[Rfam]
RNA sequence: CAAAAAGCAGUGGUCUGUUGCCUUGUGAGCAGUCCUCUCGUAACAUUCAGGGAUAUAAAACCAUUGUUCUUGGGUGAACCUCUAUUCCUUUUUUUGUGAUUGAAGGUUCAGUAAAUGAUGGGACAUUU
Number, nucleotide and partner (000 for none) at each position: 001c000002a000003a000004a000005a047006a046007g000008c000009a000010g000011u000012g035013g000014u000015c032016u031017g030018u000019u000020g000021c000022c000023u000024u000025g000026u000027g000028a000029g000030c017031a016032g015033u000034c000035c012036u000037c000038u000039c000040g000041u000042a000043a000044c000045a000046u006047u005048c000049a000050g000051g000052g000053a000054u000055a000056u000057a000058a000059a000060a000061c121062c120063a119064u118065u117066g116067u115068u114069c000070u000071u000072g000073g000074g000075u110076g109077a108078a107079c106080c105081u104082c000083u000084a000085u000086u000087c000088c000089u000090u000091u000092u000093u000094u000095u000096g000097u000098g000099a000100u000101u000102g000103a000104a081105g080106g079107u078108u077109c076110a075111g000112u000113a000114a068115a067116u066117g065118a064119u063120g062121g061122g000123a000124c000125a000126u000127u000128u000